[Rfam]
RNA sequence: GGUAUGAUUAUUUUAAUCCCACGAUAAGCCCCGGAACUUAUUGUGAUUAAAUAUCGGAACAGAUUUACUUUUAAAAAAUGAA
Numbered sequence: 001g002g003u004a005u006g007a008u009u010a011u012u013u014u015a016a017u018c019c020c021a022c023g024a025u026a027a028g029c030c031c032c033g034g035a036a037c038u039u040a041u042u043g044u045g046a047u048u049a050a051a052u053a054u055c056g057g058a059a060c061a062g063a064u065u066u067a068c069u070u071u072u073a074a075a076a077a078a079u080g081a082a
Base pairs, nucleotide, nucleotide: 009078011076012075013074014073015072020045021044022043023042024041025040026039027038028037
Dot-bracket structure: ........(.(((((....(((((((((........)))))))))..........................))))).)....

The record is an 82-nucleotide RNA from Bacillus benzoevorans, which matches "Ribosomal protein L13 leader" in Rfam. By type it is a cis-regulatory leader. Gene Ontology term of the family: regulation of gene expression. This family is a putative r-protein leader autoregulatory structure found in B. subtilis and other low-GC Gram-positive bacteria. It is located in the 5' untranslated regions of mRNAs encoding the L13-S9 (rplM-rpsI) ribosomal protein operon.